[Rfam]
RNA: Bacteroidales-1 6S-Bacteroidales RNA suggested
Organism: Bacteroidales bacterium KA00251
RNA sequence: AGCCGUACACGCAAUUUGGGAAACUCAACAGUAUAACUUUUCUCCGAGUUCUUAUUCUCAUUAAUGGCGGGCCCUCCUUGUAGAGGGAUUACAAAGAUGGGGAUAGGCUCCUAAACGUGCAAAUUCGGAGUUUUUACACAAUUUCUGUACGGCUACCUCU
Numbered sequence: 001a002g003c004c005g006u007a008c009a010c011g012c013a014a015u016u017u018g019g020g021a022a023a024c025u026c027a028a029c030a031g032u033a034u035a036a037c038u039u040u041u042c043u044c045c046g047a048g049u050u051c052u053u054a055u056u057c058u059c060a061u062u063a064a065u066g067g068c069g070g071g072c073c074c075u076c077c078u079u080g081u082a083g084a085g086g087g088a089u090u091a092c093a094a095a096g097a098u099g100g101g102g103a104u105a106g107g108c109u110c111c112u113a114a115a116c117g118u119g120c121a122a123a124u125u126c127g128g129a130g131u132u133u134u135u136a137c138a139c140a141a142u143u144u145c146u147g148u149a150c151g152g153c154u155a156c157c158u159c160u
Stems, first nucleotide, its partner, number of pairs: 050107003054104008065093002072087004
Dot-bracket structure: .................................................(((.((((((((...((.....((((........))))....))...))))))))))).....................................................